[Rfam]
Nucleotides: 062
Base pairs, nucleotide, nucleotide: 003062004061005060007057008056009055010054015051016050017049018048019046020045021044022043023042024041
Number, partner (000 for none) and nucleotide at each position: 001000c002000g003062a004061g005060c006000u007057c008056c009055g010054g011000u012000u013000c014000a015051c016050g017049g018048c019046g020045c021044c022043g023042c024041u025000g026000u027000g028000c029000a030000g031000a032000u033000g034000g035000u036000g037000u038000g039000c040000a041024g042023g043022c044021g045020g046019c047000a048018g049017c050016c051015g052000a053000c054010c055009c056008g057007g058000c059000g060005g061004c062003u

Shown here is a 62-nucleotide RNA, a member of the family "L31-Actinobacteria ribosomal protein leader". The family's RNA type in Rfam is cis-regulatory leader.